[Rfam]
RNA sequence: UUUGAGAGGAAUGUUGUCUGGUUCAAGAUCAUGGAGGAAGAAUAAAUAUCGGAACCCUAAAUGAUUCUUGGACCAGGCUUCAUUCCACUCAAC
Numbered sequence: 001u002u003u004g005a006g007a008g009g010a011a012u013g014u015u016g017u018c019u020g021g022u023u024c025a026a027g028a029u030c031a032u033g034g035a036g037g038a039a040g041a042a043u044a045a046a047u048a049u050c051g052g053a054a055c056c057c058u059a060a061a062u063g064a065u066u067c068u069u070g071g072a073c074c075a076g077g078c079u080u081c082a083u084u085c086c087a088c089u090c091a092a093c
Stems, first nucleotide, its partner, number of pairs: 002092005008086006016078006024070003
mir-166 microRNA precursor family: a 93-nucleotide RNA from Citrus x clementina.
The source organism's lineage runs through Eukaryota, Streptophyta, Magnoliopsida, Aurantioideae and Citrus.
Pairs were carried over by alignment from the consensus structure, which was predicted with PFOLD.
Rfam links the family to the GO terms miRNA-mediated post-transcriptional gene silencing and RISC complex.
It scores 70 bits against the family's covariance model.